RNA sequence: CGGAGUCUGAGGGCAAGAAAGAAAUAGUACGAGAGGAACUUUCUUUCGUCGCCACUGGUGUAUCGGUUGUCCGACAGGGCAGUGCCGAGCAGCUACGCGGCAAGAGAUAAAAGCUGAAAGCAUCUAAGCUUGAAACUCAGCCUGAAAAGAGACUCCGUUACAGGGCACGGGUACAAGACCCGCUUAAUAGGCCCGGGAUAUACGCACGAAGGCAACGACGUGUUCAGUCCGGCGGGUACUAACGCCCAAAU
Number, nucleotide and partner (000 for none) at each position: 001c157002g156003g155004a154005g153006u152007c151008u150009g000010a000011g143012g142013g141014c140015a000016a000017g047018a046019a045020a044021g043022a042023a041024a040025u000026a000027g000028u000029a000030c000031g000032a000033g000034a000035g000036g000037a000038a000039c000040u024041u023042u022043c021044u020045u019046u018047c017048g101049u100050c099051g098052c097053c000054a000055c000056u095057g094058g093059u000060g000061u000062a000063u088064c087065g086066g085067u084068u081069g080070u079071c078072c077073g000074a000075c000076a000077g072078g071079g070080c069081a068082g000083u000084g067085c066086c065087g064088a063089g000090c000091a000092g000093c058094u057095a056096c000097g052098c051099g050100g049101c048102a000103a000104g138105a137106g136107a000108u000109a000110a000111a131112a130113g129114c128115u127116g000117a000118a000119a000120g000121c000122a000123u000124c000125u000126a000127a115128g114129c113130u112131u111132g000133a000134a000135a000136c106137u105138c104139a000140g014141c013142c012143u011144g000145a000146a000147a000148a000149g000150a008151g007152a006153c005154u004155c003156c002157g001158u000159u000160a000161c000162a000163g247164g246165g245166c244167a000168c182169g181170g180171g179172u000173a000174c000175a000176a000177g000178a000179c171180c170181c169182g168183c000184u000185u000186a000187a000188u241189a240190g239191g237192c236193c235194c234195g233196g230197g229198a228199u000200a000201u000202a000203c000204g223205c222206a221207c220208g219209a000210a000211g216212g000213c000214a000215a000216c211217g000218a000219c208220g207221u206222g205223u204224u000225c000226a000227g000228u198229c197230c196231g000232g000233c195234g194235g193236g192237u191238a000239c190240u189241a188242a000243c000244g166245c165246c164247c163248a000249a000250a000251u000